[Rfam]
RNA sequence: UCCGGGGUGAUGCUUGCAUAAGGGGACUCGUGCGGAGCACGCCGUUGCUCGAUUGUUUCCCCUGGGAAGGUCUGAGACGAGAGCCUCUGUUGCGUGCAGCAAGGCCCCAGGCGGGUCCCGACCGAUAGGUCGGUCGGCUCCACAAGAAACGCACGCCGCGGGGUCCGACGGGUGGGAUGCCUCUUCGCUGAGGCGGACCCAUGGGCUCCGGUCGGACGUUGGAAACGGACCGUGGCUGGCGCUCUGAGCUCGAUUUGCAAGGUGUCCCUGUGUCGGGGCAUAACUCAAUUCAGACUACUCCAUCUCGGA
Numbered sequence: 001u002c003c004g005g006g007g008u009g010a011u012g013c014u015u016g017c018a019u020a021a022g023g024g025g026a027c028u029c030g031u032g033c034g035g036a037g038c039a040c041g042c043c044g045u046u047g048c049u050c051g052a053u054u055g056u057u058u059c060c061c062c063u064g065g066g067a068a069g070g071u072c073u074g075a076g077a078c079g080a081g082a083g084c085c086u087c088u089g090u091u092g093c094g095u096g097c098a099g100c101a102a103g104g105c106c107c108c109a110g111g112c113g114g115g116u117c118c119c120g121a122c123c124g125a126u127a128g129g130u131c132g133g134u135c136g137g138c139u140c141c142a143c144a145a146g147a148a149a150c151g152c153a154c155g156c157c158g159c160g161g162g163g164u165c166c167g168a169c170g171g172g173u174g175g176g177a178u179g180c181c182u183c184u185u186c187g188c189u190g191a192g193g194c195g196g197a198c199c200c201a202u203g204g205g206c207u208c209c210g211g212u213c214g215g216a217c218g219u220u221g222g223a224a225a226c227g228g229a230c231c232g233u234g235g236c237u238g239g240c241g242c243u244c245u246g247a248g249c250u251c252g253a254u255u256u257g258c259a260a261g262g263u264g265u266c267c268c269u270g271u272g273u274c275g276g277g278g279c280a281u282a283a284c285u286c287a288a289u290u291c292a293g294a295c296u297a298c299u300c301c302a303u304c305u306c307g308g309a
Stems, first nucleotide, its partner, number of pairs: 001309004007303003014259001018255001021063005035050005072293005082237004103117005118133006135232003139228002154218002262281007

Rfam assigns this 309-nucleotide sequence from Haemaphysalis longicornis to the family "Nuclear RNase P". Taxonomically the source falls in Haemaphysalis (Eukaryota, Eumetazoa, Parasitiformes, Ixodidae). Ribonuclease P (RNase P) is a ubiquitous endoribonuclease, found in archaea, bacteria and eukarya as well as chloroplasts and mitochondria. Its best characterised activity is the generation of mature 5'-ends of tRNAs by cleaving the 5'-leader elements of precursor-tRNAs. Cellular RNase Ps are ribonucleoproteins. RNA from bacterial RNase Ps retains its catalytic activity in the absence of the protein subunit, i.e. it is a ribozyme. Isolated eukaryotic and archaeal RNase P RNA has not been shown to retain its catalytic function, but is still essential for the catalytic activity of the holoenzyme. Although the archaeal and eukaryotic holoenzyme s have a much greater protein content than the bacterial ones, the RNA cores from all the three lineages are homologous -- helices corresponding to P1, P2, P3, P4, and P10/11 are common to all cellular RNase P RNAs. Yet, there is considerable sequence variation, particularly among the eukaryotic RNAs. By type it is a ribozyme.